[Rfam]
RNA sequence: AUACUAUGGUUUCUCUUCAGAUCAUAUAAAUCUUUUGCCUUUUACUAAAGAUUUCCAUGGAGAGGAACAUUUAUGAGUUUUUAACUAAAU
Numbered sequence: 001a002u003a004c005u006a007u008g009g010u011u012u013c014u015c016u017u018c019a020g021a022u023c024a025u026a027u028a029a030a031u032c033u034u035u036u037g038c039c040u041u042u043u044a045c046u047a048a049a050g051a052u053u054u055c056c057a058u059g060g061a062g063a064g065g066a067a068c069a070u071u072u073a074u075g076a077g078u079u080u081u082u083a084a085c086u087a088a089a090u
Stems, first nucleotide, its partner, number of pairs: 003078003009068011028054008
A member of the RNA family "U5 spliceosomal RNA" from Salvator merianae, 90 nucleotides long. Rfam describes the family as follows. U5 RNA is a component of both types of known spliceosome. The precise function of this molecule is unknown, though it is known that the 5' loop is required for splice site selection and p220 binding, and that both the 3' stem-loop and the Sm site are important for Sm protein binding and cap methylation.